Lysine riboswitch aptamer: a 176-nucleotide RNA sequence from Alkalicoccus daliensis. NCBI's taxonomy places the organism under Bacteria, Bacillati, Bacilli, Caryophanales, Alkalicoccus.
[Rfam]
RNA sequence: AAAUGAGGUAGAGGAGCAGAAACGAUAAGUACUGUUUGGGAGCUUGGACAAAGCUGUGAAAAAGCAGGAAAGGCAAUUCUGCCGAAGUCUCUUAUGGUGUCCGGAUAAGAGAGCUGGGGCUUUACUGAAUAAGUAAAGCACUGUCACGGGUGUUUCCGUGGAGAGCUGCCGCGAAG
Numbered sequence: 001a002a003a004u005g006a007g008g009u010a011g012a013g014g015a016g017c018a019g020a021a022a023c024g025a026u027a028a029g030u031a032c033u034g035u036u037u038g039g040g041a042g043c044u045u046g047g048a049c050a051a052a053g054c055u056g057u058g059a060a061a062a063a064g065c066a067g068g069a070a071a072g073g074c075a076a077u078u079c080u081g082c083c084g085a086a087g088u089c090u091c092u093u094a095u096g097g098u099g100u101c102c103g104g105a106u107a108a109g110a111g112a113g114c115u116g117g118g119g120c121u122u123u124a125c126u127g128a129a130u131a132a133g134u135a136a137a138g139c140a141c142u143g144u145c146a147c148g149g150g151u152g153u154u155u156c157c158g159u160g161g162a163g164a165g166c167u168g169c170c171g172c173g174a175a176g
Stems, first nucleotide, its partner, number of pairs: 007170005016082006024074001032067006086115003089111007116142002119139008144161007